About this RNA
The record is a 122-nucleotide RNA sequence from Thermobaculum terrenum, which matches "TPP riboswitch aptamer (THI element)" in Rfam.

[Rfam]
RNA sequence: UAUUGAGGAUACGGGAGCUCGGGUCAGCCGGGCUGAGAGGGUGGACAAUCCCCAGGGAGCUCCACCGACCGUUGGAACCUGAACCGGGUAAUGCUGGCGCAGGGAAUCAUACAGAUCUCUUU
Numbered sequence: 001u002a003u004u005g006a007g008g009a010u011a012c013g014g015g016a017g018c019u020c021g022g023g024u025c026a027g028c029c030g031g032g033c034u035g036a037g038a039g040g041g042u043g044g045a046c047a048a049u050c051c052c053c054a055g056g057g058a059g060c061u062c063c064a065c066c067g068a069c070c071g072u073u074g075g076a077a078c079c080u081g082a083a084c085c086g087g088g089u090a091a092u093g094c095u096g097g098c099g100c101a102g103g104g105a106a107u108c109a110u111a112c113a114g115a116u117c118u119c120u121u122u
Stems, first nucleotide, its partner, number of pairs: 006110001008108003011072004017033005040066005078103004084097004
Dot-bracket structure: .....(.(((((((..(((((.......)))))......(((((.................)))))..)))).....((((..((((......))))..))))..))).)............
The organism belongs to Thermobaculum terrenum, within Bacteria. Rfam describes the family as follows. Vitamin B(1) in its active form thiamin pyrophosphate (TPP) is an essential coenzyme that is synthesised by coupling of pyrimidine and thiazole moieties in bacteria. It scores 67 bits against the family's covariance model.